Description: A member of the RNA family "let-7 microRNA precursor family" from Gambusia affinis, 77 nucleotides long.
RNA sequence: UCAGGUUGAGGUAGUAGGUUGUAUAGUUCAGAGUGACACCACAGGAGAUAACUGUACAGCCUCCUAGCUUUCCCUGA
Numbered sequence: 001u002c003a004g005g006u007u008g009a010g011g012u013a014g015u016a017g018g019u020u021g022u023a024u025a026g027u028u029c030a031g032a033g034u035g036a037c038a039c040c041a042c043a044g045g046a047g048a049u050a051a052c053u054g055u056a057c058a059g060c061c062u063c064c065u066a067g068c069u070u071u072c073c074c075u076g077a
Stems, first nucleotide, its partner, number of pairs: 001077005008070003012066003016062012040047001
About the family: This family represents the microRNAs (miRNA) let-7 and mir-98. let-7 was identified from a study of developmental timing in C. elegans, and was later shown to be part of a much larger class of non-coding RNAs termed miRNAs.